[Rfam]
RNA sequence: GCCGAUGUAGUUCAAUGGUAGAACUCCUGCUUCCCAAGCAGGUAGCGCGGGUUCGAUUCCCGUCAUCGGCU
Numbered sequence: 001g002c003c004g005a006u007g008u009a010g011u012u013c014a015a016u017g018g019u020a021g022a023a024c025u026c027c028u029g030c031u032u033c034c035c036a037a038g039c040a041g042g043u044a045g046c047g048c049g050g051g052u053u054c055g056a057u058u059c060c061c062g063u064c065a066u067c068g069g070c071u
Stems, first nucleotide, its partner, number of pairs: 001070007010024004026042005047063005
Dot-bracket structure: (((((((..((((.......)))).(((((.......)))))....(((((.......)))))))))))).

A member of the RNA family "tRNA" from Nocardia seriolae, 71 nucleotides long.
Pairs were carried over by alignment from the consensus structure, which is taken from published work.
Lineage of the source: Bacteria > Bacillati > Actinomycetota > Mycobacteriales > Nocardia.
Rfam links the family to the GO term triplet codon-amino acid adaptor activity.